The record is an 88-nucleotide RNA sequence from Neobacillus vireti, which matches "c-di-GMP-I riboswitch aptamer" in Rfam. A search with the family's covariance model found it, with a score of 62 bits. The organism belongs to Neobacillus vireti, within Bacteria.
[Rfam]
RNA sequence: AGACUCAGAGGGCAACCUAUCUGAAAGGAUAUGGGCGCAAAGCUAUAGGGGCUAAAGUAGCAAUCUACUACGCCAGCCAGUUGCGAAA
Number, nucleotide and partner (000 for none) at each position: 001a000002g000003a000004c000005u000006c000007a000008g000009a000010g000011g000012g038013c037014a000015a000016c000017c033018u031019a030020u029021c028022u027023g000024a000025a000026a000027g022028g021029a020030u019031a018032u000033g017034g000035g000036c000037g013038c012039a000040a000041a082042g081043c080044u079045a000046u000047a000048g078049g077050g074051g073052c072053u000054a000055a000056a000057g068058u067059a066060g065061c000062a000063a000064u000065c060066u059067a058068c057069u000070a000071c000072g052073c051074c050075a000076g000077c049078c048079a044080g043081u042082u041083g000084c000085g000086a000087a000088a000